[Rfam]
Shown here is a 178-nucleotide sequence from Fictibacillus aquaticus, a member of the family "Lysine riboswitch aptamer". The match comes from Rfam's covariance-model search (119 bits).

RNA sequence: UGAUGAGGUAGAGGCGCAAAAAGAAUGAGUAAGGGACAGUGAGUGCGUGGGGCACAGUGAAGGUUUCUGAAAGGUCAAUUUGCCGAAGUUCAGGUGGCUCCCAUAGCCGUCUGUGCUGGGCCGGUGCUGAACAAGCACCGGACUGUCACUACAGAUGUAGUGGAGAGCUAUUCCGGCA
Numbered sequence: 001u002g003a004u005g006a007g008g009u010a011g012a013g014g015c016g017c018a019a020a021a022a023g024a025a026u027g028a029g030u031a032a033g034g035g036a037c038a039g040u041g042a043g044u045g046c047g048u049g050g051g052g053c054a055c056a057g058u059g060a061a062g063g064u065u066u067c068u069g070a071a072a073g074g075u076c077a078a079u080u081u082g083c084c085g086a087a088g089u090u091c092a093g094g095u096g097g098c099u100c101c102c103a104u105a106g107c108c109g110u111c112u113g114u115g116c117u118g119g120g121c122c123g124g125u126g127c128u129g130a131a132c133a134a135g136c137a138c139c140g141g142a143c144u145g146u147c148a149c150u151a152c153a154g155a156u157g158u159a160g161u162g163g164a165g166a167g168c169u170a171u172u173c174c175g176g177c178a
Stems, first nucleotide, its partner, number of pairs: 007172005016083005023076002032068006087117003091113008118144002121141008146163007